Overview
The family of this 77-nucleotide RNA sequence from Drosophila kikkawai is "mir-310 microRNA precursor family". Rfam links the family to the GO terms dorsal closure, head involution and miRNA-mediated post-transcriptional gene silencing. A search with the family's covariance model found it, with a score of 50 bits. The base pairs follow the family's consensus structure, which was predicted with RNAalifold. The family has 23 seed sequences and 60 matches in Rfam 15.1.
RNA sequence: ACAUUUGCAGUCUGGCUUGUGCGUGAAUACAUUAAUUGUUUAAUAUUUGUAUUGCACACUUCCCGGCCUAUGAAUGC
Numbered sequence: 001a002c003a004u005u006u007g008c009a010g011u012c013u014g015g016c017u018u019g020u021g022c023g024u025g026a027a028u029a030c031a032u033u034a035a036u037u038g039u040u041u042a043a044u045a046u047u048u049g050u051a052u053u054g055c056a057c058a059c060u061u062c063c064c065g066g067c068c069u070a071u072g073a074a075u076g077c
Base pairs, nucleotide, nucleotide: 002076003075004074005073006072007071010068013065014064020058021057023055026053027052028051029050030049031048